RNA sequence: GUGAGUCGGGUUUGUGGUUGAAAGUCGAUGCCAGUCGCAGGCGAAACGAUCCACGUAAGUUAAACAAAGUUUUAAUGAGCAUGGUGCGGCUUAGAAGUAAGUCCUGCCGCUUUUAGCGAGAGGGUUAGUAGUGAGAAGUUAAGUCUGGGUAGCGAAACCUCCAGCAGGCGAGUGUGGGGUCAAAGACCAGGUCAACCGACUUUA
Numbered sequence: 001g002u003g004a005g006u007c008g009g010g011u012u013u014g015u016g017g018u019u020g021a022a023a024g025u026c027g028a029u030g031c032c033a034g035u036c037g038c039a040g041g042c043g044a045a046a047c048g049a050u051c052c053a054c055g056u057a058a059g060u061u062a063a064a065c066a067a068a069g070u071u072u073u074a075a076u077g078a079g080c081a082u083g084g085u086g087c088g089g090c091u092u093a094g095a096a097g098u099a100a101g102u103c104c105u106g107c108c109g110c111u112u113u114u115a116g117c118g119a120g121a122g123g124g125u126u127a128g129u130a131g132u133g134a135g136a137a138g139u140u141a142a143g144u145c146u147g148g149g150u151a152g153c154g155a156a157a158c159c160u161c162c163a164g165c166a167g168g169c170g171a172g173u174g175u176g177g178g179g180u181c182a183a184a185g186a187c188c189a190g191g192u193c194a195a196c197c198g199a200c201u202u203u204a
Stems, first nucleotide, its partner, number of pairs: 003202007012195003015189005028175003031041001033091007050084002058076001060074001062072003082182001103168005108118003122161003131153002137146002
The record is a 204-nucleotide RNA from Clostridium sp. BL8, which matches "raiA RNA" in Rfam. The family's consensus secondary structure is taken from published work. Rfam classes the family as a riboswitch. The organism belongs to Clostridium, within Bacteria.